RNA: SAM/SAH riboswitch aptamer
RNA sequence: GACCUGCCACAACGGCUUCCUGGCGUGGCGAGGGAAACCUUCAAUGGAGCA
Numbered sequence: 001g002a003c004c005u006g007c008c009a010c011a012a013c014g015g016c017u018u019c020c021u022g023g024c025g026u027g028g029c030g031a032g033g034g035a036a037a038c039c040u041u042c043a044a045u046g047g048a049g050c051a
Stems, first nucleotide, its partner, number of pairs: 004032002006029005013022002015050003019047002